[Rfam]
RNA sequence: UCUCAAUGAGGAUAGAACUGGCAUCUAUCGCCCAACGAGGAGAUGUGAGGUAUUGUCACUCACCAUUGAGA
Numbered sequence: 001u002c003u004c005a006a007u008g009a010g011g012a013u014a015g016a017a018c019u020g021g022c023a024u025c026u027a028u029c030g031c032c033c034a035a036c037g038a039g040g041a042g043a044u045g046u047g048a049g050g051u052a053u054u055g056u057c058a059c060u061c062a063c064c065a066u067u068g069a070g071a
Stems, first nucleotide, its partner, number of pairs: 001071008011029005020057004031040001045063005
The family of this 71-nucleotide sequence is "skipping-rope RNA".